RNA sequence: CAAGCAAGCUGGACAGCCGCGCGGGCGGGGCGAAAGGCCCGUCUGUGAGGAAAGUCCGGGCUCCACAGGGCAAGGAUAACGGAUAACAUCCGCCGGGGGCGACCCUAGGAAAAGUGCAACAGAGAUAUACCGCUGGCGGCUUGGCCGCCAGUAAGGGUGGAAAGGCGAGGUAAGAGCUCACCCGAUGGCUGGGAACAGUCCAUCGCUGUAAACUCUAUCCGGAGCAACGCCGUGGAGGGACAAUAGGUUGGCCCGACCGUCCCGGGGAGGCGGCUGGAGCGCGUCGGCAACGGCGCGUCGAGAUAGAUGGCUGUCUUAAAAGACAGAACCCGGCUUACAGGCUUACUUGCAAC
Dot-bracket structure: ((((.(((((((((((((.(((((((((..........)))))))))....[[[.[[[[[((((....[[...(((((.((((.....)))).(((((....)))).)((...(((((...........(((((((((((...)))))))))..)).......((.(((.......))).)).((((((((....))).)))))..)))..)))))))))))))...((((.....((((.....((((...]])))).)))).....))))......((((((((....))))))))..........))))))).............]]]]]]]].).))))).))))....
Background: The record is a 353-nucleotide RNA sequence from Ruminococcaceae bacterium D16, which matches "Bacterial RNase P class A" in Rfam. The family's RNA type in Rfam is ribozyme. It scores 272 bits against the family's covariance model. Clan: RNaseP clan. Rfam describes the family as follows. Ribonuclease P (RNase P) is a ubiquitous endoribonuclease, found in archaea, bacteria and eukarya as well as chloroplasts and mitochondria.